[Rfam]
RNA sequence: AGAGGUUACAAUUUUGAGGCCACAGCAGAAGCGCUUGUGGUGCAGCCCUGUCAGGUUCCAAUGAAUCUAUAAAUUCUGCU
Dot-bracket structure: ...............[.[[[...((((((((((.......))).]]]]....((((((....)))))).....)))))))